A member of the RNA family "Small nucleolar RNA Z118/Z121/Z120" from Setaria italica, 99 nucleotides long. The family has 7 seed sequences and 435 matches in Rfam 15.1. It scores 55 bits against the family's covariance model. The family's consensus secondary structure was predicted with PFOLD. NCBI's taxonomy places the organism under Eukaryota, Spermatophyta, Petrosaviidae, Paniceae, Setaria.
[Rfam]
RNA sequence: UGUGUGCUGUGAUGACUUGUACAAGGAUGGUGUCUGAGUGAGUUGGAUUCGCUUUCCUUGCUUGUUUACAUCCAAAACUGAAUAGUCUCUCAGCAAAAC
Numbered sequence: 001u002g003u004g005u006g007c008u009g010u011g012a013u014g015a016c017u018u019g020u021a022c023a024a025g026g027a028u029g030g031u032g033u034c035u036g037a038g039u040g041a042g043u044u045g046g047a048u049u050c051g052c053u054u055u056c057c058u059u060g061c062u063u064g065u066u067u068a069c070a071u072c073c074a075a076a077a078c079u080g081a082a083u084a085g086u087c088u089c090u091c092a093g094c095a096a097a098a099c
Stems, first nucleotide, its partner, number of pairs: 002099002005095003038061005